[Rfam]
RNA sequence: GCGACACUCAAACUGUGGGGGCACUUUCUGGUGUUCAGGAGGGAAGUGCCGCCAUGAUUUGAGUGUCAC
Number, nucleotide and partner (000 for none) at each position: 001g000002c000003g000004a066005c065006a064007c063008u062009c061010a060011a059012a058013c000014u000015g055016u054017g053018g052019g000020g050021g049022c048023a047024c046025u045026u044027u043028c042029u000030g000031g000032u000033g000034u000035u000036c000037a000038g000039g000040a000041g000042g028043g027044a026045a025046g024047u023048g022049c021050c020051g000052c018053c017054a016055u015056g000057a000058u012059u011060u010061g009062a008063g007064u006065g005066u004067c000068a000069c000